Shown here is a 74-nucleotide RNA from Salmonella enterica, a member of the family "Repression of heat shock gene expression (ROSE) element".
Rfam classes the family as an RNA thermoregulator.
The family's consensus secondary structure is taken from published work.
Rfam's curators put it in the seed alignment.
Rfam describes the family as follows. This family represents a 5' UTR cis-regulatory element found in heat shock mRNAs and is known as the ROSE (repression of heat shock gene expression) element. The ROSE element is a negative regulator of heat shock gene expression.
Gene Ontology terms of the family: regulation of translation and response to temperature stimulus.
RNA sequence: UCUGGCAAUCUUGGCCUGUCCAUGAUGGAAGGUCUGACAUUCUCGCUGAUUUCAGGAGUUUAUGAUUAUGCGUA
Dot-bracket structure: ............(((((.(((.....))))))))...((..(((.(((....))))))....))..........
Numbered sequence: 001u002c003u004g005g006c007a008a009u010c011u012u013g014g015c016c017u018g019u020c021c022a023u024g025a026u027g028g029a030a031g032g033u034c035u036g037a038c039a040u041u042c043u044c045g046c047u048g049a050u051u052u053c054a055g056g057a058g059u060u061u062a063u064g065a066u067u068a069u070g071c072g073u074a
Stems, first nucleotide, its partner, number of pairs: 013034005019029003038064002042058003046055003